Rfam assigns this 121-nucleotide sequence from Crucibulum laeve to the family "U5 spliceosomal RNA". U5 RNA is a component of both types of known spliceosome. The precise function of this molecule is unknown, though it is known that the 5' loop is required for splice site selection and p220 binding, and that both the 3' stem-loop and the Sm site are important for Sm protein binding and cap methylation. The match comes from Rfam's covariance-model search (61 bits).
RNA sequence: AGCAACAGCCUAAGCAUCAAAAAGACAAUCCCCUCGCCUUUUACUAGGGGAUUCCGUGCUGCUUAGGCAUCGAAAUGUUGCUAUACAAUAUUUGGACUUUCAUUCGAACUCUUCGCGAGUU
Numbered sequence: 001a002g003c004a005a006c007a008g009c010c011u012a013a014g015c016a017u018c019a020a021a022a023a024g025a026c027a028a029u030c031c032c033c034u035c036g037c038c039u040u041u042u043a044c045u046a047g048g049g050g051a052u053u054c055c056g057u058g059c060u061g062c063u064u065a066g067g068c069a070u071c072g073a074a075a076u077g078u079u080g081c082u083a084u085a086c087a088a089u090a091u092u093u094g095g096a097c098u099u100u101c102a103u104u105c106g107a108a109c110u111c112u113u114c115g116c117g118a119g120u121u
Stems, first nucleotide, its partner, number of pairs: 003080004009067008018058002027053008096121001102120005